RNA sequence: CCAUGGUGACAGCUGGGGACCCCAUGGUGGUGGUUGG
Numbered sequence: 001c002c003a004u005g006g007u008g009a010c011a012g013c014u015g016g017g018g019a020c021c022c023c024a025u026g027g028u029g030g031u032g033g034u035u036g037g
Base pairs, nucleotide, nucleotide: 001027002026003025004024005023006022

Prion pseudoknot: a 37-nucleotide RNA from Chordeiles acutipennis. A search with the family's covariance model found it, with a score of 40 bits. Rfam links the family to the GO term translation. This family represents a predicted pseudoknot structure found in prion protein mRNA. It has been suggested that the family has a possible effect in prion protein translation.